[Rfam]
RNA sequence: AAGCUGAGAAGUAAUAUGGUAAGUCAAGGUACUGUAUUAUGGAGCUACUACAGGGGUUGGCGUAUGUCCACGACUUGAAUAGGCGUUAGCUGAAAAGAAAUACGCUUUU
Dot-bracket structure: .(((......(((((((((((..[[[[..)))))))))))...))).............(((............]]]]...(((....)))...........)))....
Shown here is a 109-nucleotide sequence, a member of the family "drum RNA". From the family's description: Firmicutes, Bacteroidetes (1 example), Proteobacteria (2 examples), Spirochaetes (2 examples). Pairs were carried over by alignment from the consensus structure, which is taken from published work.